[Rfam]
RNA sequence: UUUUUAGAACCAUUUGAAUCAAGUAGUGGUUCAAAUGGUUCU
Numbered sequence: 001u002u003u004u005u006a007g008a009a010c011c012a013u014u015u016g017a018a019u020c021a022a023g024u025a026g027u028g029g030u031u032c033a034a035a036u037g038g039u040u041c042u
Stems, first nucleotide, its partner, number of pairs: 006042016